[Rfam]
RNA sequence: UAUAUUUGCAGCUUGAAAGAAUGACUUUCAACGUACAUAAAAAUCAUUUACAAUAAUAUUAGCAUG
Numbered sequence: 001u002a003u004a005u006u007u008g009c010a011g012c013u014u015g016a017a018a019g020a021a022u023g024a025c026u027u028u029c030a031a032c033g034u035a036c037a038u039a040a041a042a043a044u045c046a047u048u049u050a051c052a053a054u055a056a057u058a059u060u061a062g063c064a065u066g
Stems, first nucleotide, its partner, number of pairs: 014030006
S15-Flavobacteria ribosomal protein leader: a 66-nucleotide sequence from Psychroserpens burtonensis. Its Rfam clan is "Ribosomal Protein S15 Leader clan". Pairs were carried over by alignment from the consensus structure, which is taken from published work. The family's RNA type in Rfam is cis-regulatory leader. NCBI's taxonomy places the organism under Bacteria, Pseudomonadati, Flavobacteriales, Flavobacteriaceae, Psychroserpens burtonensis. It is one of the family's seed sequences. A reference for the family is Eckert and Weinberg (2020), "Discovery of 20 novel ribosomal leader candidates in bacteria and archaea", BMC Microbiol.